[Rfam]
RNA sequence: GGGGCCGUGGGGUAGCUUGGUCCAUCCUCCUGGCUUGGGGUGCCAGAGACCCGGGUUCAAAUCCCGGCGGCCCCA
Dot-bracket structure: (((((((..(((.............))).(((((.......)))))....(((((.......)))))))))))).
The family of this 75-nucleotide RNA from Thermococcus sibiricus is "tRNA".
The source organism's lineage runs through Archaea, Methanobacteriota, Thermococci, Thermococcus and Thermococcus sibiricus.
From the family's description: Transfer RNA (tRNA) molecules are approximately 80 nucleotides in length.
It is annotated as a transfer RNA.